[Rfam]
RNA sequence: GGUGGGAUUGGGGAUGAAGGUGUUGACCCGCCCGCCCAUCACCGCCCAGGUGCGCUUGCCGUCCUGGUACAUCUGCACGCCGCGGCGGCUGAAUUCUUU
Numbered sequence: 001g002g003u004g005g006g007a008u009u010g011g012g013g014a015u016g017a018a019g020g021u022g023u024u025g026a027c028c029c030g031c032c033c034g035c036c037c038a039u040c041a042c043c044g045c046c047c048a049g050g051u052g053c054g055c056u057u058g059c060c061g062u063c064c065u066g067g068u069a070c071a072u073c074u075g076c077a078c079g080c081c082g083c084g085g086c087g088g089c090u091g092a093a094u095u096c097u098u099u
Base pairs, nucleotide, nucleotide: 006040007039008038010037011036012035015034016033020029022027044055045054047052080091082089083088
Overview: The record is a 99-nucleotide RNA sequence from Mycolicibacterium austroafricanum, which matches "Mycobacterium sRNA Ms_AS-1" in Rfam. The base pairs follow the family's consensus structure. Rfam's curators put it in the seed alignment. The family's RNA type in Rfam is small RNA.